[Rfam]
Nucleotides: 078
Base pairs, nucleotide, nucleotide: 002077003076004075005074008071009070010069012067013066014065016063017062018061019060020059021058022057023056024055025054026053027052029039031037041048
Number, partner (000 for none) and nucleotide at each position: 001000c002077c003076a004075g005074g006000c007000u008071g009070a010069g011000g012067u013066a014065g015000u016063a017062g018061g019060u020059u021058g022057u023056a024055u025054a026053g027052u028000u029039g030000a031037g032000a033000a034000u035000u036000a037031c038000a039029c040000c041048c042000c043000c044000a045000g046000g047000a048041g049000a050000u051000a052027a053026c054025u055024g056023u057022a058021c059020a060019a061018c062017c063016u064000c065014c066013u067012a068000g069010c070009u071008u072000u073000c074005c075004c076003u077002g078000a